RNA sequence: GGGGAGCAUCAAAGAGUUGUGAUGUUAUCUGAUACAAUCUUCCUAUAUUAAAUAAAAAUCUCUGCAUUUUCCUGCUUGCGGUAGCUGAGCUUUGUUCCGCGAGUCUCAUAUCUGCAAAGACACUA
Numbered sequence: 001g002g003g004g005a006g007c008a009u010c011a012a013a014g015a016g017u018u019g020u021g022a023u024g025u026u027a028u029c030u031g032a033u034a035c036a037a038u039c040u041u042c043c044u045a046u047a048u049u050a051a052a053u054a055a056a057a058a059u060c061u062c063u064g065c066a067u068u069u070u071c072c073u074g075c076u077u078g079c080g081g082u083a084g085c086u087g088a089g090c091u092u093u094g095u096u097c098c099g100c101g102a103g104u105c106u107c108a109u110a111u112c113u114g115c116a117a118a119g120a121c122a123c124u125a
Stems, first nucleotide, its partner, number of pairs: 001030003005026007061118001063116001074104008083095001

A member of the RNA family "Small nucleolar RNA snoR104" from Brassica napus, 125 nucleotides long. It scores 94 bits against the family's covariance model. Rfam classes the family as an H/ACA-box small nucleolar RNA.